[Rfam]
RNA: MIR6274 microRNA precursor family
RNA sequence: AGAUAGUAUUAUUUUGCUAUCUUCGGGCAAUAACACAAUAAUAUGUAAAAAAAUUAUCUUAUAUGUCAUUGCGUUAUUGAUCGAAAAUAGCAAAAAGUUAUAUAUUC
Numbered sequence: 001a002g003a004u005a006g007u008a009u010u011a012u013u014u015u016g017c018u019a020u021c022u023u024c025g026g027g028c029a030a031u032a033a034c035a036c037a038a039u040a041a042u043a044u045g046u047a048a049a050a051a052a053a054u055u056a057u058c059u060u061a062u063a064u065g066u067c068a069u070u071g072c073g074u075u076a077u078u079g080a081u082c083g084a085a086a087a088u089a090g091c092a093a094a095a096a097g098u099u100a101u102a103u104a105u106u107c
Stems, first nucleotide, its partner, number of pairs: 002106004012095009022085005028079007036071004041066008050057001